Notes:
The record is a 98-nucleotide RNA from Enterococcus sulfureus, which matches "TPP riboswitch aptamer (THI element)" in Rfam.

RNA sequence: UUUUUAUUACGGGGGGACUUUUAUAGUUGAGAAGGUUAAAACCUGACCCUUAGAACCUGGCAGUUAAGACUGGCGUAGGGAGUAAUCGCUUGCGUCUU
Numbered sequence: 001u002u003u004u005u006a007u008u009a010c011g012g013g014g015g016g017a018c019u020u021u022u023a024u025a026g027u028u029g030a031g032a033a034g035g036u037u038a039a040a041a042c043c044u045g046a047c048c049c050u051u052a053g054a055a056c057c058u059g060g061c062a063g064u065u066a067a068g069a070c071u072g073g074c075g076u077a078g079g080g081a082g083u084a085a086u087c088g089c090u091u092g093c094g095u096c097u098u
Stems, first nucleotide, its partner, number of pairs: 006086005011050004016044001017027003034043003056079004061072003

Rfam describes the family as follows. Vitamin B(1) in its active form thiamin pyrophosphate (TPP) is an essential coenzyme that is synthesised by coupling of pyrimidine and thiazole moieties in bacteria. The previously detected thiamin-regulatory element, thi box was extended, resulting in a new, highly conserved RNA secondary structure, the THI element, which is widely distributed in eubacteria and also occurs in some archaea. Analysis of operon structures identified a large number of new candidate thiamin-regulated genes, mostly transporters, in various prokaryotic organisms. The THI element is a riboswitch that directly binds to TPP to regulate gene expression through a variety of mechanisms in archaea, bacteria and eukaryotes. through a variety of mechanisms in archaea, bacteria and eukaryotes. Tandem TPP riboswitches have been reported where both TPP riboswitches respond independently to TPP. The structure of TPP riboswitch has been reported for Escherichia coli and Arabidopsis thaliana.